[Rfam]
RNA sequence: GGCCUCCCUCUGUGAGGCAAUCGAUCACGGAACCCCCUGAUCGAUCACCCUGCAGAGGGUGGCC
Numbered sequence: 001g002g003c004c005u006c007c008c009u010c011u012g013u014g015a016g017g018c019a020a021u022c023g024a025u026c027a028c029g030g031a032a033c034c035c036c037c038u039g040a041u042c043g044a045u046c047a048c049c050c051u052g053c054a055g056a057g058g059g060u061g062g063c064c
Base pairs, nucleotide, nucleotide: 001064002063003062004061006059007058008057009056010055011054012053013052014051016049017048020045021044022043023042024041025040026039027038029036030035
Dot-bracket structure: ((((.(((((((((.((..((((((((.((....)).))))))))..)).))))))))).))))
Overview:
The family of this 64-nucleotide RNA from Myotis myotis is "mir-9242 microRNA precursor family". The family's consensus secondary structure was predicted with RNAalifold. Gene Ontology terms of the family: RISC complex and miRNA-mediated post-transcriptional gene silencing. The match comes from Rfam's covariance-model search (62 bits). The family has 2 seed sequences and 940 matches in Rfam 15.1. Taxonomically the source falls in Myotis (Eukaryota, Teleostomi, Dipnotetrapodomorpha, Mammalia).